[Rfam]
RNA sequence: CCCGCCACUAUGCUAGUCUAUAAAAGUGACUGUGUAUAAUCCAGUGGUGGCUGAUAGAGACCCAGCUCUAGGAAACAGGACUGCCCUGUUUAAUGGGUAACUCUGUGCCGAAAGGCCUGGAACAUUA
Number, nucleotide and partner (000 for none) at each position: 001c000002c000003c000004g000005c047006c046007a045008c044009u043010a000011u000012g000013c000014u000015a000016g000017u000018c034019u032020a031021u029022a000023a000024a000025a000026g000027u000028g000029a021030c000031u020032g019033u000034g018035u000036a000037u000038a000039a000040u000041c000042c000043a009044g008045u007046g006047g005048u000049g000050g000051c000052u000053g000054a000055u000056a000057g000058a000059g000060a000061c000062c120063c119064a118065g117066c115067u114068c000069u112070a000071g109072g108073a000074a000075a000076c105077a104078g103079g102080a000081c000082u000083g000084c097085c096086c095087u000088g000089u000090u000091u000092a000093a000094u000095g086096g085097g084098u000099a000100a000101c000102u079103c078104u077105g076106u000107g000108c072109c071110g000111a000112a069113a000114g067115g066116c000117c065118u064119g063120g062121a000122a000123c000124a000125u000126u000127a000

Small nucleolar RNA SNORA65: a 127-nucleotide RNA sequence from Triplophysa tibetana. From the family's description: U65 belongs to the H/ACA class of snoRNAs which are thought to guide the sites of modification of uridines to pseudouridines. A search with the family's covariance model found it, with a score of 100 bits. NCBI's taxonomy places the organism under Eukaryota, Metazoa, Chordata, Osteoglossocephalai, Triplophysa. For this family Rfam cites "RNomics: an experimental approach that identifies 201 candidates for novel, small, non-messenger RNAs in mouse" (Huttenhofer et al., EMBO J, 2001). Its Rfam clan is "SNORA65 clan". By type it is an H/ACA-box small nucleolar RNA. Gene Ontology terms of the family: nucleolus and RNA processing.